[Rfam]
RNA sequence: GUUCAUCUUCAAGGGGCAGGGUGUGAUUCCCGACCGGUGGUAAAGUCCAUGAGCUAUCUUUGGAUGGUCGAUUCGGUGUAAUUCCGAAACCGAUAGUUAAAGUCUAGAUAAAGGGAGAUUGAA
Numbered sequence: 001g002u003u004c005a006u007c008u009u010c011a012a013g014g015g016g017c018a019g020g021g022u023g024u025g026a027u028u029c030c031c032g033a034c035c036g037g038u039g040g041u042a043a044a045g046u047c048c049a050u051g052a053g054c055u056a057u058c059u060u061u062g063g064a065u066g067g068u069c070g071a072u073u074c075g076g077u078g079u080a081a082u083u084c085c086g087a088a089a090c091c092g093a094u095a096g097u098u099a100a101a102g103u104c105u106a107g108a109u110a111a112a113g114g115g116a117g118a119u120u121g122a123a
Base pairs, nucleotide, nucleotide: 003121005119006118007117008116009115010114019031020030021029033103034102035092036091037050038049039048040047045090046089053068054067055066072088073087074086075085076084094106095105096104
FMN riboswitch aptamer (RFN element): a 123-nucleotide sequence from Pediococcus stilesii. The base pairs follow the family's consensus structure, which is taken from published work. It scores 91 bits against the family's covariance model. Gene Ontology term of the family: FMN binding.